[Rfam]
RNA: mir-50 microRNA precursor family
Nucleotides: 077
Base pairs, nucleotide, nucleotide: 008069009068010067011066012065013064014063015062016061017060019058020057021056022055028051029050030049031048
Number, partner (000 for none) and nucleotide at each position: 001000u002000u003000a004000u005000c006000u007000u008069u009068g010067a011066u012065a013064u014063g015062u016061c017060u018000g019058g020057u021056a022055u023000u024000c025000u026000u027000g028051g029050g030049u031048u032000c033000g034000g035000u036000c037000c038000g039000a040000u041000u042000c043000a044000c045000g046000a047000c048031a049030a050029c051028c052000a053000g054000c055022a056021u057020a058019c059000a060017a061016g062015a063014c064013g065012u066011a067010u068009c069008g070000a071000a072000g073000a074000u075000c076000g077000a